[Rfam]
RNA sequence: AGCUUAAUGAUGAUUGUCUCUUUUGAUGCUUAAAGCAACGUGAAAAAAAUAUUUCACCGGCUCUGAAAGCU
Numbered sequence: 001a002g003c004u005u006a007a008u009g010a011u012g013a014u015u016g017u018c019u020c021u022u023u024u025g026a027u028g029c030u031u032a033a034a035g036c037a038a039c040g041u042g043a044a045a046a047a048a049a050u051a052u053u054u055c056a057c058c059g060g061c062u063c064u065g066a067a068a069g070c071u
Base pairs, nucleotide, nucleotide: 001071002070003069004068005067

This 71-nucleotide RNA from Vicugna pacos belongs to the Rfam family "Small nucleolar RNA SNORD102".
The literature on the family includes a 2003 paper in Nucleic Acids Res by Vitali et al., "Identification of 13 novel human modification guide RNAs".
The source organism's lineage runs through Eukaryota, Craniata, Teleostomi, Sarcopterygii and Vicugna.
Rfam 15.1 lists 443 matches to the family in 430 species.
The family's consensus secondary structure was predicted with PFOLD.
It scores 90 bits against the family's covariance model.